[Rfam]
RNA sequence: UAGGGAGGACGGGGUUCAGACCCCCUCCUGGAGCCCAGGGUAACCUUGAAAGUGGAGGGGAA
Numbered sequence: 001u002a003g004g005g006a007g008g009a010c011g012g013g014g015u016u017c018a019g020a021c022c023c024c025c026u027c028c029u030g031g032a033g034c035c036c037a038g039g040g041u042a043a044c045c046u047u048g049a050a051a052g053u054g055g056a057g058g059g060g061a062a
Stems, first nucleotide, its partner, number of pairs: 008041001010039001012036004016031004022060006
The record is a 62-nucleotide RNA from Rattus norvegicus, which matches "Gag/pol translational readthrough site" in Rfam. For this family Rfam cites "Pseudoknot-dependent read-through of retroviral gag termination codons: importance of sequences in the spacer and loop 2" (Wills et al., EMBO J, 1994). Pairs were carried over by alignment from the consensus structure, which is taken from published work. The family has 8 seed sequences and 3,368 matches in Rfam 15.1.